The family of this 78-nucleotide RNA sequence from Schistosoma margrebowiei is "mir-3492 microRNA precursor family". The organism belongs to Schistosoma, within Eukaryota. Rfam links the family to the GO terms RISC complex and miRNA-mediated post-transcriptional gene silencing.
RNA sequence: AGCUUUUCGAAUCCAUGCUGAGAUUUCUUCAGAAACCAACACAUUAGGGCUGAUAUGACUUCAAAGAUAUGUGAAGUU
Dot-bracket structure: .(((((.((.(((..((..(((.((...((.....................))...)))))))..))).)).))))).